RNA sequence: UUAUUAAAAAUCAGAUCACCAAUUAGACUUAUGUCUUUAUUGGUCAUUCAAGUGGGGCAAAGGAAAUAUCCUUUUAAAACUCAGGCAAACUAGUGUUUGUCUUGUAUCCUGUCAAAGGAAACAAAU
Numbered sequence: 001u002u003a004u005u006a007a008a009a010a011u012c013a014g015a016u017c018a019c020c021a022a023u024u025a026g027a028c029u030u031a032u033g034u035c036u037u038u039a040u041u042g043g044u045c046a047u048u049c050a051a052g053u054g055g056g057g058c059a060a061a062g063g064a065a066a067u068a069u070c071c072u073u074u075u076a077a078a079a080c081u082c083a084g085g086c087a088a089a090c091u092a093g094u095g096u097u098u099g100u101c102u103u104g105u106a107u108c109c110u111g112u113c114a115a116a117g118g119a120a121a122c123a124a125a126u
Stems, first nucleotide, its partner, number of pairs: 032059005040051004069119006082104001083102008

A member of the RNA family "Small nucleolar RNA SNORA27" from Propithecus coquereli, 126 nucleotides long. ACA27 is a member of the H/ACA class of snoRNA that guide the sites of modification of uridines to pseudouridines. The match comes from Rfam's covariance-model search (133 bits). Pairs were carried over by alignment from the consensus structure. NCBI's taxonomy places the organism under Eukaryota, Bilateria, Amniota, Theria, Propithecus. It is annotated as an H/ACA-box small nucleolar RNA.